[Rfam]
RNA sequence: GAAGGGGCCUCUGGAGAAUCCUGCCCGCGCAGGUGCCGAAGGGGCAAGGCGGCACACAGCCGCUGAAACUCUCAGGCAAAAGGACAGAGCAGAGCCG
Numbered sequence: 001g002a003a004g005g006g007g008c009c010u011c012u013g014g015a016g017a018a019u020c021c022u023g024c025c026c027g028c029g030c031a032g033g034u035g036c037c038g039a040a041g042g043g044g045c046a047a048g049g050c051g052g053c054a055c056a057c058a059g060c061c062g063c064u065g066a067a068a069c070u071c072u073c074a075g076g077c078a079a080a081a082g083g084a085c086a087g088a089g090c091a092g093a094g095c096c097g
Stems, first nucleotide, its partner, number of pairs: 009089005020033004035077003038073002042071003048064005

The record is a 97-nucleotide RNA sequence from Eggerthellaceae bacterium zg-893, which matches "Glycine riboswitch aptamer" in Rfam.